[Rfam]
RNA: ZMP/ZTP riboswitch aptamer (pfl RNA motif)
RNA sequence: GCCCCGAGCCGUGACUGGCGCGCUGGGAUGGGACCGACCAUCGGGGAGCGGCUCAGCAGUCAGUGCCGUGCGCCUGGGCCGUCCCG
Numbered sequence: 001g002c003c004c005c006g007a008g009c010c011g012u013g014a015c016u017g018g019c020g021c022g023c024u025g026g027g028a029u030g031g032g033a034c035c036g037a038c039c040a041u042c043g044g045g046g047a048g049c050g051g052c053u054c055a056g057c058a059g060u061c062a063g064u065g066c067c068g069u070g071c072g073c074c075u076g077g078g079c080c081g082u083c084c085c086g
Stems, first nucleotide, its partner, number of pairs: 004056001006054007015045002017074005028041004065079003